[Rfam]
RNA: Makes More Granules Regulator RNA (mmgR)
RNA sequence: CGCCUCUGCCCUUCCUGGGCGUUUCCUCCCUAAUGAACUGCGGCGCCGUAUGGCGCCGCUUUUUUUUGGCCUGA
Numbered sequence: 001c002g003c004c005u006c007u008g009c010c011c012u013u014c015c016u017g018g019g020c021g022u023u024u025c026c027u028c029c030c031u032a033a034u035g036a037a038c039u040g041c042g043g044c045g046c047c048g049u050a051u052g053g054c055g056c057c058g059c060u061u062u063u064u065u066u067u068g069g070c071c072u073g074a
Stems, first nucleotide, its partner, number of pairs: 008020004040059008